[Rfam]
RNA sequence: GCCAUGGGGAAAGCGAUCUCCCCACAAGGCGACAUGCCCAAGAAUCGCGUCCAGUUUUUCAACAAGGACGCAUCAUG
Numbered sequence: 001g002c003c004a005u006g007g008g009g010a011a012a013g014c015g016a017u018c019u020c021c022c023c024a025c026a027a028g029g030c031g032a033c034a035u036g037c038c039c040a041a042g043a044a045u046c047g048c049g050u051c052c053a054g055u056u057u058u059u060c061a062a063c064a065a066g067g068a069c070g071c072a073u074c075a076u077g
Stems, first nucleotide, its partner, number of pairs: 005024006047071006
Rfam assigns this 77-nucleotide RNA from Candidatus Afipia apatlaquensis to the family "chrB-a RNA". A search with the family's covariance model found it, with a score of 83 bits. It is annotated as a cis-regulatory element. Lineage of the source: Bacteria > Pseudomonadota > Hyphomicrobiales > Nitrobacteraceae > Afipia.